The record is a 230-nucleotide RNA from Texcoconibacillus texcoconensis, which matches "Group II catalytic intron D1-D4-6" in Rfam. A search with the family's covariance model found it, with a score of 145 bits. The pairing is the family consensus, mapped onto this sequence. Lineage of the source: Bacteria > Bacillota > Caryophanales > Bacillaceae > Texcoconibacillus.

RNA sequence: GGAUUCCCGUCGAGUAAGAGCUAGCCACUCACUCGUAGCGAGUCUUGGAGGAUAGGAGGCAACUCCGAUCUUUAAGCGUAGACAGUUAGGUGAUGGGCCGUAAGCUACGGUUGAAGGGUUUGAGCCUCGAAAUCCCAAAUGGGAGUGCUGAUACACUGGUCCGUGUAGAAAGCAAAACUUCCUUUUUCGUUAAAGGUAAGAAAAGGAAGGCUCCUCGGGGUCAAUGCCCU
Numbered sequence: 001g002g003a004u005u006c007c008c009g010u011c012g013a014g015u016a017a018g019a020g021c022u023a024g025c026c027a028c029u030c031a032c033u034c035g036u037a038g039c040g041a042g043u044c045u046u047g048g049a050g051g052a053u054a055g056g057a058g059g060c061a062a063c064u065c066c067g068a069u070c071u072u073u074a075a076g077c078g079u080a081g082a083c084a085g086u087u088a089g090g091u092g093a094u095g096g097g098c099c100g101u102a103a104g105c106u107a108c109g110g111u112u113g114a115a116g117g118g119u120u121u122g123a124g125c126c127u128c129g130a131a132a133u134c135c136c137a138a139a140u141g142g143g144a145g146u147g148c149u150g151a152u153a154c155a156c157u158g159g160u161c162c163g164u165g166u167a168g169a170a171a172g173c174a175a176a177a178c179u180u181c182c183u184u185u186u187u188c189g190u191u192a193a194a195g196g197u198a199a200g201a202a203a204a205g206g207a208a209g210g211c212u213c214c215u216c217g218g219g220g221u222c223a224a225u226g227c228c229c230u
Stems, first nucleotide, its partner, number of pairs: 011035004018030003022199001024197002038086002042083004046078002048073006055066004121224001122222001124221006141215006147173003152167004178209007186202003